[Rfam]
RNA sequence: AAAUUUACCUGGCAGGGAAGGAGAUACCAUGAUCAUGAGGGUGGUUUUCCCAGGGCCCAGUUCAUCCAUUGCACUGCAGAUGUGCCGACCACUAUGAUUUAUCCAAAUGCAGGAAACUCAACUGUGUAAUUUGUGGUAGUGGGGAAUUGCAUUCGCACUUUCCCCUG
Number, nucleotide and partner (000 for none) at each position: 001a000002a000003a000004u000005u000006u000007a000008c000009c000010u000011g000012g125013c124014a123015g122016g051017g000018a000019a000020g050021g049022a048023g047024a046025u000026a045027c044028c043029a042030u041031g000032a000033u000034c000035a000036u000037g000038a000039g000040g000041g030042u029043g028044g027045u026046u024047u023048u022049c021050c020051c016052a093053g092054g000055g090056c000057c000058c000059a000060g085061u084062u000063c082064a081065u080066c079067c000068a000069u000070u000071g000072c000073a000074c000075u000076g000077c000078a000079g066080a065081u064082g063083u000084g061085c060086c000087g000088a000089c000090c055091a000092c053093u052094a000095u120096g119097a118098u116099u114100u113101a000102u112103c000104c000105a000106a000107a000108u000109g000110c000111a000112g102113g100114a099115a000116a098117c000118u097119c096120a095121a000122c015123u014124g013125u012126g000127u000128a000129a000130u000131u000132u000133g000134u000135g000136g000137u000138a000139g000140u000141g165142g164143g163144g162145a000146a161147u000148u000149g158150c000151a000152u000153u000154c000155g000156c000157a000158c149159u000160u000161u146162c144163c143164c142165c141166u000167g000
Notes: Shown here is a 167-nucleotide RNA sequence from Pelodiscus sinensis, a member of the family "U1 spliceosomal RNA". The organism belongs to Pelodiscus, within Eukaryota. About the family: U1 is a small nuclear RNA (snRNA) component of the spliceosome (involved in pre-mRNA splicing). Its 5' end forms complementary base pairs with the 5' splice junction, thus defining the 5' donor site of an intron. There are significant differences in sequence and secondary structure between metazoan and yeast U1 snRNAs, the latter being much longer (568 nucleotides as compared to 164 nucleotides in human). Nevertheless, secondary structure predictions suggest that all U1 snRNAs share a 'common core' consisting of helices I, II, the proximal region of III, and IV. This family does not contain the larger yeast sequences. The family is grouped with related families in Rfam's "U1 clan".